This 205-nucleotide RNA from Carnegiea gigantea belongs to the Rfam family "U2 spliceosomal RNA".
It scores 139 bits against the family's covariance model.
Lineage of the source: Eukaryota > eudicotyledons > Cactineae > Cactaceae > Carnegiea.
Rfam describes the family as follows. U2 is a small nuclear RNA (snRNA) component of the spliceosome (involved in pre-mRNA splicing).
Rfam links the family to the GO terms mRNA branch site recognition, U2 snRNP and pre-mRNA branch point binding.

[Rfam]
RNA sequence: AUACCUUUCUCGGCCUUUUGGCUAAGAUUCAGUGUAGUAUCUAUUUUGAUCAGUUUAAUAUCUGAUACGUGGGUCAUUGGCCCACAAUGAUAUUAAAUUAAUUUUUUGAGGGAGAGGGUCCACCAUAGUAGCUUGCUUCUAGGGCCCUUGAGUGUCGCCCAUGCAUUGCACUGUGGCCUACUGGGCUGGGCUUGGCACACCCUAC
Numbered sequence: 001a002u003a004c005c006u007u008u009c010u011c012g013g014c015c016u017u018u019u020g021g022c023u024a025a026g027a028u029u030c031a032g033u034g035u036a037g038u039a040u041c042u043a044u045u046u047u048g049a050u051c052a053g054u055u056u057a058a059u060a061u062c063u064g065a066u067a068c069g070u071g072g073g074u075c076a077u078u079g080g081c082c083c084a085c086a087a088u089g090a091u092a093u094u095a096a097a098u099u100a101a102u103u104u105u106u107u108g109a110g111g112g113a114g115a116g117g118g119u120c121c122a123c124c125a126u127a128g129u130a131g132c133u134u135g136c137u138u139c140u141a142g143g144g145c146c147c148u149u150g151a152g153u154g155u156c157g158c159c160c161a162u163g164c165a166u167u168g169c170a171c172u173g174u175g176g177c178c179u180a181c182u183g184g185g186c187u188g189g190g191c192u193u194g195g196c197a198c199a200c201c202c203u204a205c
Stems, first nucleotide, its partner, number of pairs: 008027003012023004049066005069085007114149008128139001130137002152198006159190002163186002